[Rfam]
RNA sequence: AGCUGCCAUCACGGUCAUAGCAGAAGCGCUCACAGGUCCCGGCCCUGGCAGAUCCUAAUGAAUCUGCAAAUUCUGCU
Numbered sequence: 001a002g003c004u005g006c007c008a009u010c011a012c013g014g015u016c017a018u019a020g021c022a023g024a025a026g027c028g029c030u031c032a033c034a035g036g037u038c039c040c041g042g043c044c045c046u047g048g049c050a051g052a053u054c055c056u057a058a059u060g061a062a063u064c065u066g067c068a069a070a071u072u073c074u075g076c077u
Base pairs, nucleotide, nucleotide: 013044014043015042016041019077020076021075022074023073024072025071026040028038049066050065051064052063053062055060
Record summary:
Shown here is a 77-nucleotide RNA from Alligator mississippiensis, a member of the family "Mammalian CPEB3 ribozyme". The mammalian CPEB3 ribozyme is a self cleaving RNA located in the second intron of the CPEB3 gene which belongs to a family of genes regulating messenger RNA polyadenylation. This ribozyme is highly conserved and found only in mammals. The CPEB3 ribozyme is structurally and biochemically related to the human hepatitis delta virus (HDV) ribozyme and the HDV ribozyme is proposed to have arisen from the human transcriptome. There is currently only one other known self cleaving ribozyme in mammals, the CoTC motif. For this family Rfam cites "A genomewide search for ribozymes reveals an HDV-like sequence in the human CPEB3 gene" (Salehi-Ashtiani et al., Science, 2006).